This 181-nucleotide RNA from Scopulibacillus darangshiensis belongs to the Rfam family "Lysine riboswitch aptamer". The family's consensus secondary structure is taken from published work. The source organism's lineage runs through Bacteria, Bacillati, Caryophanales, Sporolactobacillaceae and Scopulibacillus.
[Rfam]
RNA sequence: AGUAAGGAUAGAGGUGCAAAGUCCAUCAGUACACAAUUUGAGGAUAAUGAGAUCCCAUGACGAUUGUGGAAAGGGGAAUUUGCCGAAGCUUUAAAGAAUCUCAUUGGUCUUGAAGCUGGGUCUGCUAUUGAAUAAAUACAGAACUGUCAUAUAGGAAACUAUAUGGAGGGCUAUCUCACGC
Numbered sequence: 001a002g003u004a005a006g007g008a009u010a011g012a013g014g015u016g017c018a019a020a021g022u023c024c025a026u027c028a029g030u031a032c033a034c035a036a037u038u039u040g041a042g043g044a045u046a047a048u049g050a051g052a053u054c055c056c057a058u059g060a061c062g063a064u065u066g067u068g069g070a071a072a073g074g075g076g077a078a079u080u081u082g083c084c085g086a087a088g089c090u091u092u093a094a095a096g097a098a099u100c101u102c103a104u105u106g107g108u109c110u111u112g113a114a115g116c117u118g119g120g121u122c123u124g125c126u127a128u129u130g131a132a133u134a135a136a137u138a139c140a141g142a143a144c145u146g147u148c149a150u151a152u153a154g155g156a157a158a159c160u161a162u163a164u165g166g167a168g169g170g171c172u173a174u175c176u177c178a179c180g181c
Stems, first nucleotide, its partner, number of pairs: 006176006016083005022077003032068007087117006094111004118145002121142004126138004147166007
It scores 126 bits against the family's covariance model.